RNA sequence: AGCUACCUGGCCAGAGCCACAGGCUGUGUUCUUAUACAGACUGCACAGAAAGAGAAGGCCAAGUAAACCUACCCCACAUACACACCUCAGCCUGGGCCCUUUGCCUAGUCUGUAUUGUGAAUGGGGGGACAUGG
Numbered sequence: 001a002g003c004u005a006c007c008u009g010g011c012c013a014g015a016g017c018c019a020c021a022g023g024c025u026g027u028g029u030u031c032u033u034a035u036a037c038a039g040a041c042u043g044c045a046c047a048g049a050a051a052g053a054g055a056a057g058g059c060c061a062a063g064u065a066a067a068c069c070u071a072c073c074c075c076a077c078a079u080a081c082a083c084a085c086c087u088c089a090g091c092c093u094g095g096g097c098c099c100u101u102u103g104c105c106u107a108g109u110c111u112g113u114a115u116u117g118u119g120a121a122u123g124g125g126g127g128g129a130c131a132u133g134g
Stems, first nucleotide, its partner, number of pairs: 002059003007054002020043003026037004072126005088112003092108006
Small nucleolar RNA SNORA51: a 134-nucleotide RNA sequence from Molossus molossus. ACA51 is a member of the H/ACA class of snoRNA that guide the sites of modification of uridines to pseudouridines. The source organism's lineage runs through Eukaryota, Deuterostomia, Gnathostomata, Euteleostomi and Molossus. Gene Ontology terms of the family: nucleolus and RNA processing. The family has 9 seed sequences and 2,121 matches in Rfam 15.1. The base pairs follow the family's consensus structure, which was predicted with PFOLD.